RNA sequence: UGGUUCUUCUCUUUGGUGAUUUGGCUUAUAUGACUGACAUGCAUCAUAAAGCUAGGUUACCAAAGCUAAGCGCCU
Numbered sequence: 001u002g003g004u005u006c007u008u009c010u011c012u013u014u015g016g017u018g019a020u021u022u023g024g025c026u027u028a029u030a031u032g033a034c035u036g037a038c039a040u041g042c043a044u045c046a047u048a049a050a051g052c053u054a055g056g057u058u059a060c061c062a063a064a065g066c067u068a069a070g071c072g073c074c075u
Stems, first nucleotide, its partner, number of pairs: 002074003007069002011065016029048005
Dot-bracket structure: .(((..((..((((((((((((((((..(((((..........))))).))))))))))))))))..))..))).